[Rfam]
RNA sequence: CAUAGCCGAAGAUAUCAGCCGGGUUUAGGUUGGGAGAUACGGUGUGCACGGUACCCAGGGAGGCAUCAUACACGCCACCCCAGAACAUGGCCUUAGCCACAAAUGCUAAGCAAAGGAUCCCCAACAAUAGGAGGUGGUGACCGAGGAUGAGGCUGAGUUGCUUGGUAUCGCCCCA
Numbered sequence: 001c002a003u004a005g006c007c008g009a010a011g012a013u014a015u016c017a018g019c020c021g022g023g024u025u026u027a028g029g030u031u032g033g034g035a036g037a038u039a040c041g042g043u044g045u046g047c048a049c050g051g052u053a054c055c056c057a058g059g060g061a062g063g064c065a066u067c068a069u070a071c072a073c074g075c076c077a078c079c080c081c082a083g084a085a086c087a088u089g090g091c092c093u094u095a096g097c098c099a100c101a102a103a104u105g106c107u108a109a110g111c112a113a114a115g116g117a118u119c120c121c122c123a124a125c126a127a128u129a130g131g132a133g134g135u136g137g138u139g140a141c142c143g144a145g146g147a148u149g150a151g152g153c154u155g156a157g158u159u160g161c162u163u164g165g166u167a168u169c170g171c172c173c174c175a
Base pairs, nucleotide, nucleotide: 133172134171135170136169137168138167142165144163145162

The family of this 175-nucleotide sequence from Prochlorothrix scandica is "Antisense RNA which regulates isiA expression".
The literature on the family includes a 2006 paper in Proc Natl Acad Sci U S A by Duhring et al., "An internal antisense RNA regulates expression of the photosynthesis gene isiA".
The family's consensus secondary structure was predicted with PFOLD.
Rfam's curators put it in the seed alignment.